[Rfam]
RNA sequence: GCUUCACGCUGGGGGUGGUGCCUGGAGGCACCUGAGAGAGUCCCCUCGAACCUGAUCCGGCUCGUACCGGCGGAGGAAAGCGUAUGCCCGACACC
Numbered sequence: 001g002c003u004u005c006a007c008g009c010u011g012g013g014g015g016u017g018g019u020g021c022c023u024g025g026a027g028g029c030a031c032c033u034g035a036g037a038g039a040g041u042c043c044c045c046u047c048g049a050a051c052c053u054g055a056u057c058c059g060g061c062u063c064g065u066a067c068c069g070g071c072g073g074a075g076g077a078a079a080g081c082g083u084a085u086g087c088c089c090g091a092c093a094c095c
Stems, first nucleotide, its partner, number of pairs: 006083005011045004016039001017032005051076003057070004
Rfam assigns this 95-nucleotide RNA from Pseudenhygromyxa sp. WMMC2535 to the family "TPP riboswitch aptamer (THI element)". The organism belongs to Pseudenhygromyxa, within Bacteria.